[Rfam]
RNA sequence: CCCACACUCAUGUACAUUGGACCCCAAAUGAUCACCAUUAAAUUUGGUACAGUUCUCUAGAAAAGUUAUCACAUAGGUGUGAGACUUGACUUUUCUGGAGAUCUGUGCCAAAUUUAAUGGUGAUCCUUUGGGAUCCUACACACAUAGAUGUGGA
Number, nucleotide and partner (000 for none) at each position: 001c000002c153003c152004a151005c150006a149007c000008u147009c000010a145011u144012g143013u142014a000015c000016a000017u138018u000019g136020g135021a134022c000023c132024c131025c130026a129027a128028a127029u000030g125031a124032u123033c000034a121035c120036c119037a118038u117039u116040a115041a114042a113043u112044u111045u110046g109047g108048u107049a106050c105051a104052g103053u000054u101055c100056u099057c098058u097059a096060g095061a094062a093063a092064a091065g090066u089067u088068a087069u082070c081071a080072c079073a078074u000075a000076g000077g000078u073079g072080u071081g070082a069083g000084a000085c000086u000087u068088g067089a066090c065091u064092u063093u062094u061095c060096u059097g058098g057099a056100g055101a054102u000103c052104u051105g050106u049107g048108c047109c046110a045111a044112a043113u042114u041115u040116a039117a038118u037119g036120g035121u034122g000123a032124u031125c030126c000127u028128u027129u026130g025131g024132g023133a000134u021135c020136c019137u000138a017139c000140a000141c000142a013143c012144a011145u010146a000147g008148a000149u006150g005151u004152g003153g002154a000
The record is a 154-nucleotide sequence from Amborella trichopoda, which matches "MIR8565 microRNA precursor family" in Rfam.
Its family is annotated with RISC complex and miRNA-mediated post-transcriptional gene silencing in the Gene Ontology.